The record is a 79-nucleotide RNA from Manihot esculenta, which matches "Small nucleolar RNA R12" in Rfam.

RNA sequence: AUGGCAGAUGAAGAAAAGAAUCAGACGGAUUCCCAUUGAUUGUACAAUAUGAUAUCACAAUCAGCUAUUUCUGAGCCAU
Numbered sequence: 001a002u003g004g005c006a007g008a009u010g011a012a013g014a015a016a017a018g019a020a021u022c023a024g025a026c027g028g029a030u031u032c033c034c035a036u037u038g039a040u041u042g043u044a045c046a047a048u049a050u051g052a053u054a055u056c057a058c059a060a061u062c063a064g065c066u067a068u069u070u071c072u073g074a075g076c077c078a079u
Base pairs, nucleotide, nucleotide: 001079002078003077004076005075

Rfam's curators write: snoR12 is a C/D box small nucleolar RNA, which acts as a methylation guide for 25S ribosomal RNA in plants. snoR12 has been alternatively named snoZ44 in Arabidopsis and snoZ131 in rice.
Rfam classes the family as a C/D-box small nucleolar RNA.